[Rfam]
RNA sequence: AGCAACAGAACUGCUGUGUGACUCACCAUCGGUUUUAGAUGAUGGUCAGUGUAGUUCGAUUCAUCAGAGAAAAAUCUAACAACACAGCACUCCCAGAAAAAUUUGGUAGGCACGAUUGGACUCGAACCAACGACCCCCACCA
Numbered sequence: 001a002g003c004a005a006c007a008g009a010a011c012u013g014c015u016g017u018g019u020g021a022c023u024c025a026c027c028a029u030c031g032g033u034u035u036u037a038g039a040u041g042a043u044g045g046u047c048a049g050u051g052u053a054g055u056u057c058g059a060u061u062c063a064u065c066a067g068a069g070a071a072a073a074a075u076c077u078a079a080c081a082a083c084a085c086a087g088c089a090c091u092c093c094c095a096g097a098a099a100a101a102u103u104u105g106g107u108a109g110g111c112a113c114g115a116u117u118g119g120a121c122u123c124g125a126a127c128c129a130a131c132g133a134c135c136c137c138c139a140c141c142a
Stems, first nucleotide, its partner, number of pairs: 006031001008029001012025002049064003104139003109134001113132002116130004

The record is a 142-nucleotide RNA sequence from Mesosutterella multiformis, which matches "Bacterial antisense RNA HPnc0260" in Rfam. On this family, see Sharma et al., Nature 2010: "The primary transcriptome of the major human pathogen Helicobacter pylori". The base pairs follow the family's consensus structure, which was predicted with CMfinder.